The record is a 110-nucleotide RNA sequence from Lederbergia galactosidilytica, which matches "TPP riboswitch aptamer (THI element)" in Rfam. Pairs were carried over by alignment from the consensus structure, which is taken from published work. On this family, see Kubodera et al., FEBS Lett 2003: "Thiamine-regulated gene expression of Aspergillus oryzae thiA requires splicing of the intron containing a riboswitch-like domain in the 5'-UTR". A search with the family's covariance model found it, with a score of 67 bits. The source organism's lineage runs through Bacteria, Bacilli, Caryophanales, Bacillaceae and Lederbergia.
Nucleotides: 110
Stems, first nucleotide, its partner, number of pairs: 007097004011060004016054001017031005039053004066091003072085004
Number, partner (000 for none) and nucleotide at each position: 001000u002000a003000u004000g005000g006000a007097a008096u009095g010094u011060g012059g013058g014057g015000g016054g017031a018030c019029c020028g021027g022000u023000c024000a025000u026000g027021c028020c029019g030018g031017u032000u033000g034000a035000g036000a037000g038000u039053g040052c041051a042050u043000c044000c045000u046000u047000g048000a049000g050042a051041u052040g053039c054016u055000g056000a057014c058013c059012c060011u061000u062000a063000g064000a065000a066091c067090c068089u069000g070000c071000c072085c073084u074083g075082g076000u077000u078000a079000a080000g081000a082075c083074c084073a085072g086000c087000g088000a089068a090067g091066g092000g093000a094010a095009c096008a097007u098000g099000g100000a101000u102000u103000c104000a105000u106000g107000c108000a109000u110000a